[Rfam]
RNA sequence: UUGCCCGUGGUUCGAAACCAUCCCACGUAAAAAAACUAGGAGGAA
Numbered sequence: 001u002u003g004c005c006c007g008u009g010g011u012u013c014g015a016a017a018c019c020a021u022c023c024c025a026c027g028u029a030a031a032a033a034a035a036c037u038a039g040g041a042g043g044a045a
Base pairs, nucleotide, nucleotide: 006027007026008025009024010023016037
RNA: PreQ1 (pre queuosine) riboswitch aptamer